The family of this 70-nucleotide RNA from Brenthis ino is "mir-11 microRNA precursor family".
Gene Ontology terms of the family: miRNA-mediated post-transcriptional gene silencing, cellular response to gamma radiation and RISC complex.
Pairs were carried over by alignment from the consensus structure, which was predicted with RNAalifold.
A reference for the family is Marco et al. (2010), "Functional shifts in insect microRNA evolution", Genome Biol Evol.
The match comes from Rfam's covariance-model search (58 bits).
RNA sequence: CCGCGUGGCUAGUACUCGCGCUGUGGUUUGUGUUCGCAGUCACAUCACAGUCAGAGUUCUAGCUAUACGG
Numbered sequence: 001c002c003g004c005g006u007g008g009c010u011a012g013u014a015c016u017c018g019c020g021c022u023g024u025g026g027u028u029u030g031u032g033u034u035c036g037c038a039g040u041c042a043c044a045u046c047a048c049a050g051u052c053a054g055a056g057u058u059c060u061a062g063c064u065a066u067a068c069g070g
Stems, first nucleotide, its partner, number of pairs: 005066002009062004014057004021050006030043003